[Rfam]
RNA sequence: GGCGCCGGAACAAGUCACGGUGAUGGCGACGGUGCGCCGGUCGGAGCCACGGCUGGGUGGCACCUACCUGCCGCAGGAAGAGGAGGUCGGCGCCGACGGAGUGAAGUGGUUCCGACCGGCCGC
Numbered sequence: 001g002g003c004g005c006c007g008g009a010a011c012a013a014g015u016c017a018c019g020g021u022g023a024u025g026g027c028g029a030c031g032g033u034g035c036g037c038c039g040g041u042c043g044g045a046g047c048c049a050c051g052g053c054u055g056g057g058u059g060g061c062a063c064c065u066a067c068c069u070g071c072c073g074c075a076g077g078a079a080g081a082g083g084a085g086g087u088c089g090g091c092g093c094c095g096a097c098g099g100a101g102u103g104a105a106g107u108g109g110u111u112c113c114g115a116c117c118g119g120c121c122g123c
Base pairs, nucleotide, nucleotide: 004120005119006118007117008116